[Rfam]
Notes:
Rfam assigns this 64-nucleotide sequence from Mesembryanthemum cordifolium to the family "Plastid-ccsA-ndhD-1 3UTR RNA". For this family Rfam cites "Control of plastid gene expression: 3' inverted repeats act as mRNA processing and stabilizing elements, but do not terminate transcription" (Stern and Gruissem, Cell, 1987). The sequence is in the family's curated seed alignment. The base pairs follow the family's consensus structure, which was predicted with LocARNA. Rfam's curators write: Plastid-ccsA-ndhD-1 is a non-coding RNA (ncRNA) recognised in plastids. It is annotated as a cis-regulatory element. The organism belongs to Mesembryanthemum sect. Geniculiflora, within Eukaryota.

Nucleotides: 064
Stems, first nucleotide, its partner, number of pairs: 010059001012057017
Number, partner (000 for none) and nucleotide at each position: 001000u002000a003000u004000a005000a006000a007000c008000a009000g010059g011000c012057g013056a014055g015054a016053a017052c018051c019050a020049u021048u022047u023046a024045a025044a026043u027042c028041a029000c030000u031000a032000u033000u034000a035000c036000u037000a038000u039000a040000g041028u042027g043026a044025u045024u046023u047022a048021a049020a050019u051018g052017g053016u054015u055014c056013u057012c058000a059010c060000a061000a062000a063000c064000g